[Rfam]
RNA sequence: CUCUUAUCAAGAGAGGCGGAGGGACUGGCCCUGUGAAGCCUCAGCAACCAUAAUCGGUAUGGUGCUAAUUCCAGCAGAGUUUUUUAGCUCUGGAAGAUGAGGG
Number, nucleotide and partner (000 for none) at each position: 001c103002u102003c101004u100005u099006a098007u097008c096009a000010a000011g000012a000013g042014a041015g040016g039017c038018g000019g000020a000021g031022g030023g029024a000025c074026u073027g072028g071029c023030c022031c021032u000033g000034u000035g000036a000037a000038g017039c016040c015041u014042c013043a066044g065045c064046a063047a000048c062049c061050a058051u057052a000053a000054u000055c000056g000057g051058u050059a000060u000061g049062g048063u046064g045065c044066u043067a000068a000069u000070u095071c028072c027073a026074g025075c092076a091077g090078a089079g088080u087081u000082u000083u000084u000085u000086a000087g080088c079089u078090c077091u076092g075093g000094a000095a070096g008097a007098u006099g005100a004101g003102g002103g001
SAM riboswitch aptamer (S box leader): a 103-nucleotide RNA from Heyndrickxia ginsengihumi.